[Rfam]
RNA sequence: AUACUCCCCCGGCAAACUUAUCGAAAGAUAAGGACGCAAAACUAUGGGUCUAAGAAUCGUCAUGAUUGAUGACUGCCAGGUUGCCAUA
Numbered sequence: 001a002u003a004c005u006c007c008c009c010c011g012g013c014a015a016a017c018u019u020a021u022c023g024a025a026a027g028a029u030a031a032g033g034a035c036g037c038a039a040a041a042c043u044a045u046g047g048g049u050c051u052a053a054g055a056a057u058c059g060u061c062a063u064g065a066u067u068g069a070u071g072a073c074u075g076c077c078a079g080g081u082u083g084c085c086a087u088a
Stems, first nucleotide, its partner, number of pairs: 012037002017032006040082004045078003048073003055067004
RNA: c-di-GMP-I riboswitch aptamer